mir-146 microRNA precursor family: a 90-nucleotide sequence from Vulpes vulpes. The organism belongs to Vulpes, within Eukaryota. The family's consensus secondary structure was predicted with WAR.
RNA sequence: CUGGCCACCUGGCUCUGAGAACUGAAUUCCAUAGGCUGUGAGCUUGAGCAAACAGCCUAGGGAAUCAGUUCUGGUGCCCGGCUGUGCUCU
Numbered sequence: 001c002u003g004g005c006c007a008c009c010u011g012g013c014u015c016u017g018a019g020a021a022c023u024g025a026a027u028u029c030c031a032u033a034g035g036c037u038g039u040g041a042g043c044u045u046g047a048g049c050a051a052a053c054a055g056c057c058u059a060g061g062g063a064a065u066c067a068g069u070u071c072u073g074g075u076g077c078c079c080g081g082c083u084g085u086g087c088u089c090u
Stems, first nucleotide, its partner, number of pairs: 008081002011078003018072008034056001